[Rfam]
Nucleotides: 061
Base pairs, nucleotide, nucleotide: 023040024039025038026037027036028035029034
Number, partner (000 for none) and nucleotide at each position: 001000c002000a003000u004000u005000u006000a007000u008000a009000u010000u011000a012000a013000c014000a015000g016000u017000c018000a019000u020000g021000u022000a023040a024039u025038c026037g027036c028035u029034g030000g031000c032000a033000a034029c035028g036027g037026c038025g039024a040023u041000a042000a043000a044000c045000g046000c047000a048000a049000c050000a051000g052000c053000u054000u055000a056000a057000u058000c059000g060000g061000a
Shown here is a 61-nucleotide sequence, a member of the family "porB RNA". The family's consensus secondary structure is taken from published work. The family's RNA type in Rfam is small RNA. The sequence is in the family's curated seed alignment.